Lysine riboswitch aptamer: a 175-nucleotide RNA from Hujiaoplasma nucleasis. The family has 47 seed sequences and 3,224 matches in Rfam 15.1. On this family, see Mandal et al., Cell 2003: "Riboswitches Control Fundamental Biochemical Pathways in Bacillus subtilis and Other Bacteria". NCBI's taxonomy places the organism under Bacteria, Bacillati, Mycoplasmatota, Hujiaoplasmataceae, Hujiaoplasma.
[Rfam]
RNA sequence: UUAAAGCACAGAGGCGCGUUUCAUUGGUAUUUUAUACUGUUUUCUUUUUAGGCAAAGUUGUAUAAAAGAAGGAAUGAAUCGCCGAAAGUAUAGGGUCUACCUAAGGGUUCUUUACUUGGUAUUUAAACAGACAGUUUAAAUAUUGCCAUAUUUAUUAUGGAGAGCUGUUAUAUUU
Numbered sequence: 001u002u003a004a005a006g007c008a009c010a011g012a013g014g015c016g017c018g019u020u021u022c023a024u025u026g027g028u029a030u031u032u033u034a035u036a037c038u039g040u041u042u043u044c045u046u047u048u049u050a051g052g053c054a055a056a057g058u059u060g061u062a063u064a065a066a067a068g069a070a071g072g073a074a075u076g077a078a079u080c081g082c083c084g085a086a087a088g089u090a091u092a093g094g095g096u097c098u099a100c101c102u103a104a105g106g107g108u109u110c111u112u113u114a115c116u117u118g119g120u121a122u123u124u125a126a127a128c129a130g131a132c133a134g135u136u137u138a139a140a141u142a143u144u145g146c147c148a149u150a151u152u153u154a155u156u157a158u159g160g161a162g163a164g165c166u167g168u169u170a171u172a173u174u175u
Stems, first nucleotide, its partner, number of pairs: 008168004016082003020078005030067008086117005092111006118144011146160005

Pairs were carried over by alignment from the consensus structure, which is taken from published work.